A member of the RNA family "SAM riboswitch aptamer (S box leader)" from Aquibacillus koreensis, 104 nucleotides long. NCBI's taxonomy places the organism under Bacteria, Bacillati, Bacillota, Bacilli, Aquibacillus. The match comes from Rfam's covariance-model search (100 bits).
RNA sequence: UUCUUAUCAAGAGAGAUGGAGGGAAUGGCCCUAUGAAAUCUCAGCAACCAGCCAGUUGGCCCGGUGCUAAUUCCAAUAGGUUUUUAUAACCUAAUAGAUAAGAA
Numbered sequence: 001u002u003c004u005u006a007u008c009a010a011g012a013g014a015g016a017u018g019g020a021g022g023g024a025a026u027g028g029c030c031c032u033a034u035g036a037a038a039u040c041u042c043a044g045c046a047a048c049c050a051g052c053c054a055g056u057u058g059g060c061c062c063g064g065u066g067c068u069a070a071u072u073c074c075a076a077u078a079g080g081u082u083u084u085u086a087u088a089a090c091c092u093a094a095u096a097g098a099u100a101a102g103a104a
Stems, first nucleotide, its partner, number of pairs: 001104008013042005021031003026075003043068004048064002051060003072096001077093006